[Rfam]
RNA sequence: CCCGGGUAAUUGGCCUGUAAUCCGAGAAAUCGGAGGGAUAUGGGUUGGGCAUUAUGGAUGGGGAGAGGUUCUGUGAGCGGCGGCAGGGCCGGAGAUCACCGCCACCAUUGAACGGCGCGCCCGUCUCCAAGCCAAGAGUGGAGGUAGGCGCCCUCUCGGAGGGGAGUUUGGCGUCUGCCUCGUUGAUGAGGGGGGGAACGCGUGGAGGCCGGCGACGGAGCGACGAACACCUCCCGCUCUCGGCAGUGGAGGGACAACGCAGGCCUUCCGGCGGCCUCCGACAACCCUCCCCGCGCCUCUCCUCCACACCCCAGCCCCU
Dot-bracket structure: (((((((.....))))....(((........))))))..(.(((((((.......((..(((((((((....(((.(.((..(.(((..........................((((((.((..(((((.(((.(((((.(((((((((((((((((....)))))...))))))))))))........(((((......(((.....(((....)))....)))....))))).))))).)))..)))))))....)))..))).........))).).......)).).))).)))))))))....))))))))).)
This 319-nucleotide sequence from Ceratopteris richardii belongs to the Rfam family "Metazoan signal recognition particle RNA". Its Rfam clan is "SRP clan". NCBI's taxonomy places the organism under Eukaryota, Tracheophyta, Euphyllophyta, Pteridineae, Ceratopteris. Rfam 15.1 lists 383,523 matches to the family in 1,221 species. The signal recognition particle (SRP) is a universally conserved ribonucleoprotein. It is involved in the co-translational targeting of proteins to membranes. The family's RNA type in Rfam is non-coding RNA gene.